[Rfam]
c-di-AMP riboswitch aptamer (ydaO/yuaA leader): a 160-nucleotide RNA sequence from Phycicoccus duodecadis. Its family is annotated with cyclic-di-AMP binding and regulation of gene expression in the Gene Ontology. The match comes from Rfam's covariance-model search (50 bits). This family represents a conserved RNA structure found upstream of the ydaO and yuaA genes in Bacillus subtilis and related genes in other bacteria.

RNA sequence: UCCUCGCGCACCACACCGCUUGGCAGGAGCGGGGGAACCACCUUCGGAGCCACUCUCACGCCUGGCUCCUCGGGGUGAAGCCGACCGGUCCUUCGGGGCCGCCGGCCGGGCAACCUCUGCCCGAACCCGACAGCUCACCCCGUAGGCACAGAGAGGUCCA
Numbered sequence: 001u002c003c004u005c006g007c008g009c010a011c012c013a014c015a016c017c018g019c020u021u022g023g024c025a026g027g028a029g030c031g032g033g034g035g036a037a038c039c040a041c042c043u044u045c046g047g048a049g050c051c052a053c054u055c056u057c058a059c060g061c062c063u064g065g066c067u068c069c070u071c072g073g074g075g076u077g078a079a080g081c082c083g084a085c086c087g088g089u090c091c092u093u094c095g096g097g098g099c100c101g102c103c104g105g106c107c108g109g110g111c112a113a114c115c116u117c118u119g120c121c122c123g124a125a126c127c128c129g130a131c132a133g134c135u136c137a138c139c140c141c142g143u144a145g146g147c148a149c150a151g152a153g154a155g156g157u158c159c160a
Stems, first nucleotide, its partner, number of pairs: 001028003029143006039072001073128003081105003108122004